Record summary
Rfam assigns this 83-nucleotide sequence from Triticum aestivum to the family "Small nucleolar RNA R16". It scores 46 bits against the family's covariance model. The base pairs follow the family's consensus structure, which was predicted with PFOLD. Rfam links the family to the GO terms RNA processing and nucleolus. On this family, see Galardi et al., Mol Cell Biol 2002: "Purified box C/D snoRNPs are able to reproduce site-specific 2'-O-methylation of target RNA in vitro". NCBI's taxonomy places the organism under Eukaryota, Viridiplantae, Liliopsida, Petrosaviidae, Triticum.

[Rfam]
RNA sequence: AGUGGCAAAUGAUGUGAAAUAUUAUGUUGGACACUUAAUCUAUAAUAUGCUUACAAAUCUUCGCUUAUUUAUCUCAUGCUACC
Numbered sequence: 001a002g003u004g005g006c007a008a009a010u011g012a013u014g015u016g017a018a019a020u021a022u023u024a025u026g027u028u029g030g031a032c033a034c035u036u037a038a039u040c041u042a043u044a045a046u047a048u049g050c051u052u053a054c055a056a057a058u059c060u061u062c063g064c065u066u067a068u069u070u071a072u073c074u075c076a077u078g079c080u081a082c083c
Base pairs, nucleotide, nucleotide: 003081004080005079006078007077